RNA sequence: AAUGCAAAAGCCAAACCUGUUGUGAAACAGGGACGGAAAGCCACGGGUUUCAAAGGAAACAGCCGGGUUGCCAUUC
Number, nucleotide and partner (000 for none) at each position: 001a000002a000003u073004g072005c000006a000007a000008a000009a000010g000011c036012c035013a000014a000015a000016c031017c030018u029019g028020u027021u026022g000023u000024g000025a000026a021027a020028c019029a018030g017031g016032g000033a000034c062035g012036g011037a000038a000039a069040g068041c067042c066043a000044c065045g064046g063047g060048u059049u058050u000051c000052a000053a000054a000055g000056g000057a000058a049059a048060c047061a000062g034063c046064c045065g044066g042067g041068u040069u039070g000071c000072c004073a003074u000075u000076c000
The record is a 76-nucleotide RNA sequence from Desulfonema ishimotonii, which matches "c-di-GMP-I-GGC riboswitch aptamer" in Rfam.
The literature on the family includes a 2009 paper in Nat Struct Mol Biol by Smith et al., "Structural basis of ligand binding by a c-di-GMP riboswitch".
The match comes from Rfam's covariance-model search (70 bits).
Its Rfam clan is "c-di-GMP_I riboswitch clan".
NCBI's taxonomy places the organism under Bacteria, Pseudomonadati, Desulfobacterales, Desulfococcaceae, Desulfonema.